A member of the RNA family "L31-Coriobacteria ribosomal protein leader" from Betta splendens, 32 nucleotides long.
The family's consensus secondary structure is taken from published work.
NCBI's taxonomy places the organism under Eukaryota, Teleostomi, Ctenosquamata, Anabantoidei, Betta.
It scores 34 bits against the family's covariance model.
RNA sequence: CCUCUGGUCGGAACCAGAGCAGUUCAAAGGAG
Numbered sequence: 001c002c003u004c005u006g007g008u009c010g011g012a013a014c015c016a017g018a019g020c021a022g023u024u025c026a027a028a029g030g031a032g
Base pairs, nucleotide, nucleotide: 002019003018004017005016006015007014008013